[Rfam]
RNA sequence: UGUAAGUUUCAGGGAAGGUGAAAAUCCUUACUGGCGGUAACGGUCCGCUGCCCGCAAUCUGCGGCGGCGACACCACCCAAGCCCGCGACCCGCGUAAGCGGCUGAUCCGGUGUGAAUCCGGGGCCAACGGUUAUAGUCCGGAUGGAAGAAACGGAGC
Numbered sequence: 001u002g003u004a005a006g007u008u009u010c011a012g013g014g015a016a017g018g019u020g021a022a023a024a025u026c027c028u029u030a031c032u033g034g035c036g037g038u039a040a041c042g043g044u045c046c047g048c049u050g051c052c053c054g055c056a057a058u059c060u061g062c063g064g065c066g067g068c069g070a071c072a073c074c075a076c077c078c079a080a081g082c083c084c085g086c087g088a089c090c091c092g093c094g095u096a097a098g099c100g101g102c103u104g105a106u107c108c109g110g111u112g113u114g115a116a117u118c119c120g121g122g123g124c125c126a127a128c129g130g131u132u133a134u135a136g137u138c139c140g141g142a143u144g145g146a147a148g149a150a151a152c153g154g155a156g157c
Stems, first nucleotide, its partner, number of pairs: 003155001006152005016028003030137002032126002034086004090101002106122005128140003
Shown here is a 157-nucleotide RNA from Bifidobacterium boum, a member of the family "FMN riboswitch aptamer (RFN element)". It scores 88 bits against the family's covariance model. Pairs were carried over by alignment from the consensus structure, which is taken from published work.